[Rfam]
RNA sequence: GGAGCAGCUUCUGGAGAGACUGUACGAUAUGUGCAGCGCCGAAGGAUUCACAAUCUCAGGCAAAAGGACAGAAGAAUAACG
Number, nucleotide and partner (000 for none) at each position: 001g000002g000003a000004g000005c000006a000007g000008c074009u073010u072011c071012u070013g069014g000015a000016g000017a000018g000019a000020c036021u035022g034023u033024a000025c000026g000027a000028u000029a000030u000031g000032u000033g023034c022035a021036g020037c000038g061039c060040c059041g057042a056043a000044g000045g055046a054047u053048u000049c000050a000051c000052a000053a047054u046055c045056u042057c041058a000059g040060g039061c038062a000063a000064a000065a000066g000067g000068a000069c013070a012071g011072a010073a009074g008075a000076a000077u000078a000079a000080c000081g000